[Rfam]
RNA sequence: CUCUUAUUCAGAGUGGUGGAGAUACAUAGGAUCUGUGAAACCACGGCAACCCCGUCAGAGGAAGGUGCCAACCUGAGCGAAAUUCGAACAAUAAGAG
Dot-bracket structure: ((((((((....(((((...(((...[..[)))......)))))((((.((((......))..))))))....]..](((...)))...))))))))
Numbered sequence: 001c002u003c004u005u006a007u008u009c010a011g012a013g014u015g016g017u018g019g020a021g022a023u024a025c026a027u028a029g030g031a032u033c034u035g036u037g038a039a040a041c042c043a044c045g046g047c048a049a050c051c052c053c054g055u056c057a058g059a060g061g062a063a064g065g066u067g068c069c070a071a072c073c074u075g076a077g078c079g080a081a082a083u084u085c086g087a088a089c090a091a092u093a094a095g096a097g
Stems, first nucleotide, its partner, number of pairs: 001097008013044005021033003027077001030074001045069004050065002052061002078086003
Shown here is a 97-nucleotide RNA sequence from Lachnospiraceae bacterium A10, a member of the family "SAM riboswitch aptamer (S box leader)". The base pairs follow the family's consensus structure, which is taken from published work. The organism belongs to Lachnospiraceae, within Bacteria.